[Rfam]
RNA sequence: AGUAAAUUGAGUGGACAUGACCUUAGUACGAGAGGACCGGGUCGUACGUGCCGCUGGUGUAUCUGUUGUGCCGCCAGGUGCAAUGCAGAGUAGCUAUGCACGGACAGGAUAAACGCUGAAAGCAUCUAAGCGUGAAACCUUCCACAAGAUGAGUUUACUUUUAAGGGUCGUCAAAGACUAUGACGUUGAUAGGCUAUAGGUGUAAAGCUGGUAACAGCAAAGCCAAGUAGUACUAAUUGCCCGUAA
Number, nucleotide and partner (000 for none) at each position: 001a159002g158003u157004a156005a155006a154007u153008u152009g000010a000011g145012u144013g143014g142015a000016c000017a045018u044019g043020a042021c041022c040023u039024u000025a000026g000027u000028a000029c000030g000031a000032g000033a000034g000035g000036a000037c000038c000039g023040g022041g021042u020043c019044g018045u017046a000047c102048g101049u100050g099051c098052c000053g000054c000055u096056g095057g094058u000059g000060u000061a000062u089063c088064u087065g086066u085067u082068g081069u080070g079071c078072c077073g000074c000075c000076a000077g072078g071079u070080g069081c068082a067083a000084u000085g066086c065087a064088g063089a062090g000091u000092a000093g000094c057095u056096a055097u000098g051099c050100a049101c048102g047103g000104a000105c000106a140107g139108g138109a000110u000111a000112a000113a133114c132115g131116c130117u129118g000119a000120a000121a000122g000123c000124a000125u000126c000127u000128a000129a117130g116131c115132g114133u113134g000135a000136a000137a000138c108139c107140u106141u000142c014143c013144a012145c011146a000147a000148g000149a000150u000151g000152a008153g007154u006155u005156u004157a003158c002159u001160u000161u000162u000163a000164a000165g242166g241167g240168u239169c185170g184171u183172c182173a181174a000175a000176g000177a000178c000179u000180a000181u173182g172183a171184c170185g169186u000187u000188g000189a000190u235191a234192g233193g231194c230195u229196a228197u227198a000199g224200g223201u000202g000203u219204a000205a000206a000207g218208c217209u216210g215211g000212u000213a000214a000215c210216a209217g208218c207219a203220a000221a000222g000223c200224c199225a000226a000227g197228u196229a195230g194231u193232a000233c192234u191235a190236a000237u000238u000239g168240c167241c166242c165243g000244u000245a000246a000